[Rfam]
RNA sequence: CAGUCUGUAAAGCUGGGGUGAAGGAAGCUUAAAGCAAAUGCGCGGGCUGACGUACAGCAAGCGAAUAUAGGCAAAGUGCACGGGGACGAGGGAGCAACACAUUCGGAAGUCCUGACCAUUCGAAUACGGCGCAUUUUGUAGAUUCGACAGUUACGCGUGGAAAGUAGCCGAGG
Numbered sequence: 001c002a003g004u005c006u007g008u009a010a011a012g013c014u015g016g017g018g019u020g021a022a023g024g025a026a027g028c029u030u031a032a033a034g035c036a037a038a039u040g041c042g043c044g045g046g047c048u049g050a051c052g053u054a055c056a057g058c059a060a061g062c063g064a065a066u067a068u069a070g071g072c073a074a075a076g077u078g079c080a081c082g083g084g085g086a087c088g089a090g091g092g093a094g095c096a097a098c099a100c101a102u103u104c105g106g107a108a109g110u111c112c113u114g115a116c117c118a119u120u121c122g123a124a125u126a127c128g129g130c131g132c133a134u135u136u137u138g139u140a141g142a143u144u145c146g147a148c149a150g151u152u153a154c155g156c157g158u159g160g161a162a163a164g165u166a167g168c169c170g171a172g173g
Base pairs, nucleotide, nucleotide: 001015002014003013005012006011028172029171030170034165035164039159040158041157042156043155044154045152046151047150048149049148062146063145064144065143066142071139072138073137075135076134077133078132079131081129084112085111086110087109091104092103093102

A member of the RNA family "Group II catalytic intron D1-D4-3" from Pontiella sulfatireligans, 173 nucleotides long. NCBI's taxonomy places the organism under Bacteria, Pseudomonadati, Kiritimatiellota, Kiritimatiellales, Pontiella. A reference for the family is Bonen and Vogel (2001), "The ins and outs of group II introns", Trends Genet.